THF (Tetrahydrofolate) riboswitch aptamer: a 100-nucleotide RNA sequence from Hydrogeniiclostridium mannosilyticum. Rfam links the family to the GO term tetrahydrofolate metabolic process. A search with the family's covariance model found it, with a score of 80 bits.

RNA sequence: GUCAGAGUAGAGGCCGAGCGUUAAGUGCUGCCGGAUGGGAAGUUGCCGGCGGACGAAAAAUUCAGGAUUGAAUUUGCGGUUCGGCCUCGCGUCCGCUGCC
Numbered sequence: 001g002u003c004a005g006a007g008u009a010g011a012g013g014c015c016g017a018g019c020g021u022u023a024a025g026u027g028c029u030g031c032c033g034g035a036u037g038g039g040a041a042g043u044u045g046c047c048g049g050c051g052g053a054c055g056a057a058a059a060a061u062u063c064a065g066g067a068u069u070g071a072a073u074u075u076g077c078g079g080u081u082c083g084g085c086c087u088c089g090c091g092u093c094c095g096c097u098g099c100c
Base pairs, nucleotide, nucleotide: 001100003098004097005096010088011087012086013085014084015083016082017081018080019078020077021076025054026053028052029051030050031049032048033047034046038094039093040092042090058075059074060073061072062071063070
From the family's description: Tetrahydrofolate (THF) riboswitch was first reported for Ames et al. as an RNA motif in 5' untranslated (5'-UTR)regions of folate transport and biosynthesis genes in Firmicutes genomes.